The family of this 47-nucleotide RNA sequence from Saccharopolyspora spinosa is "L31-Actinobacteria ribosomal protein leader".
The family's consensus secondary structure is taken from published work.
RNA sequence: CCGGCACCGGUUCACCGCGCGGCAGCGGCCGCGUGGACCCGGCGGCC
Numbered sequence: 001c002c003g004g005c006a007c008c009g010g011u012u013c014a015c016c017g018c019g020c021g022g023c024a025g026c027g028g029c030c031g032c033g034u035g036g037a038c039c040c041g042g043c044g045g046c047c
Stems, first nucleotide, its partner, number of pairs: 003047003007042004015036009
The source organism's lineage runs through Bacteria, Pseudonocardiales, Pseudonocardiaceae, Saccharopolyspora and Saccharopolyspora spinosa.